The record is an 85-nucleotide sequence from Egretta garzetta, which matches "Small nucleolar RNA SNORD121A" in Rfam. The match comes from Rfam's covariance-model search (59 bits).
RNA sequence: GUCCAAAAUACAGCGAUGUUGUCUUUUCCAAUCACAUUAUCUGAUUGCUCUGUGUGGAAAAUGACUUGCUGAGUGAUUUUUGGAU
Numbered sequence: 001g002u003c004c005a006a007a008a009u010a011c012a013g014c015g016a017u018g019u020u021g022u023c024u025u026u027u028c029c030a031a032u033c034a035c036a037u038u039a040u041c042u043g044a045u046u047g048c049u050c051u052g053u054g055u056g057g058a059a060a061a062u063g064a065c066u067u068g069c070u071g072a073g074u075g076a077u078u079u080u081u082g083g084a085u
Base pairs, nucleotide, nucleotide: 001085002084003083004082005081006080008078009075010074011073
Dot-bracket structure: ((((((.((((.............................................................)))..).))))))
The base pairs follow the family's consensus structure, which was predicted with WAR.